[Rfam]
RNA sequence: GCCUGAGUGGUGGAAUGGUAGACACCGUAGACUCAAAAUCUACUGGAGAAAUCCGUGCAGGUUCAAGUCCUGUCUCAGGUA
Numbered sequence: 001g002c003c004u005g006a007g008u009g010g011u012g013g014a015a016u017g018g019u020a021g022a023c024a025c026c027g028u029a030g031a032c033u034c035a036a037a038a039u040c041u042a043c044u045g046g047a048g049a050a051a052u053c054c055g056u057g058c059a060g061g062u063u064c065a066a067g068u069c070c071u072g073u074c075u076c077a078g079g080u081a
Stems, first nucleotide, its partner, number of pairs: 001080007010025003027043005057073005
RNA: tRNA